[Rfam]
RNA sequence: GGGAUGUGAUGAGUGGUCAUAAGUCGUAUUUCUGUUUUAUAACAGAAAUAGCAUGCGAGAUGGGUGUCCGCCCAAAACUCGUUACGACAAAAUUGGGCACUCCAAUUUAUAUCAAUCUGAUCCC
Dot-bracket structure: ((((.........(.(.......((((((.......................))))))...(((((((...........(((.........).)))))))))..........).).....))))